[Rfam]
RNA sequence: GGCAAACCGUUGGGGUGUCCCGUCACAGGGGCUGAGAGGCGACAGCCAACCCAUCGAACCUGAUCCGGGUCAUACCGGCGGAGGGAACGGUGCAGAUAUCCGC
Numbered sequence: 001g002g003c004a005a006a007c008c009g010u011u012g013g014g015g016u017g018u019c020c021c022g023u024c025a026c027a028g029g030g031g032c033u034g035a036g037a038g039g040c041g042a043c044a045g046c047c048a049a050c051c052c053a054u055c056g057a058a059c060c061u062g063a064u065c066c067g068g069g070u071c072a073u074a075c076c077g078g079c080g081g082a083g084g085g086a087a088c089g090g091u092g093c094a095g096a097u098a099u100c101c102g103c
Stems, first nucleotide, its partner, number of pairs: 006091005011053004017032005039046002059084003065078004

The record is a 103-nucleotide sequence from Paracoccus sp. 228, which matches "TPP riboswitch aptamer (THI element)" in Rfam.
The literature on the family includes a 2006 paper in Structure by Edwards and Ferre-D'Amare, "Crystal structures of the thi-box riboswitch bound to thiamine pyrophosphate analogs reveal adaptive RNA-small molecule recognition".